[Rfam]
RNA sequence: CGGUCAAUGAUGAGUACUUUAUAUUGAUUUGAGGAACGAUAAUGACUUCAAUAUCGAGUACAAUGGCAUGACACUGAGGCCC
Numbered sequence: 001c002g003g004u005c006a007a008u009g010a011u012g013a014g015u016a017c018u019u020u021a022u023a024u025u026g027a028u029u030u031g032a033g034g035a036a037c038g039a040u041a042a043u044g045a046c047u048u049c050a051a052u053a054u055c056g057a058g059u060a061c062a063a064u065g066g067c068a069u070g071a072c073a074c075u076g077a078g079g080c081c082c
Stems, first nucleotide, its partner, number of pairs: 002081003005076002008073002
Description
The record is an 82-nucleotide RNA sequence from Carlito syrichta, which matches "Small nucleolar RNA SNORD115" in Rfam. The family's RNA type in Rfam is C/D-box small nucleolar RNA. The family's consensus secondary structure was predicted with PFOLD. NCBI's taxonomy places the organism under Eukaryota, Amniota, Eutheria, Euarchontoglires, Carlito. The literature on the family includes a 2000 paper in Proc Natl Acad Sci U S A by Cavaille et al., "Identification of brain-specific and imprinted small nucleolar RNA genes exhibiting an unusual genomic organization".